A member of the RNA family "tRNA" from Oceanivirga miroungae, 74 nucleotides long. The family is grouped with related families in Rfam's "tRNA clan". The match comes from Rfam's covariance-model search (62 bits).
Nucleotides: 074
Base pairs, nucleotide, nucleotide: 001073002072003071004070005069006068007067010026011025012024013023028044029043030042031041032040050066051065052064053063054062
Number, partner (000 for none) and nucleotide at each position: 001073g002072u003071g004070c005069u006068u007067c008000u009000a010026g011025c012024u013023c014000a015000a016000u017000g018000g019000a020000u021000u022000a023013g024012a025011g026010c027000g028044c029043c030042u031041g032040a033000c034000u035000a036000c037000g038000g039000a040032u041031c042030a043029g044028g045000a046000g047000g048000u049000u050066a051065c052064g053063a054062g055000u056000u057000c058000g059000a060000c061000u062054c063053u064052u065051g066050u067007g068006a069005a070004g071003c072002a073001c074000g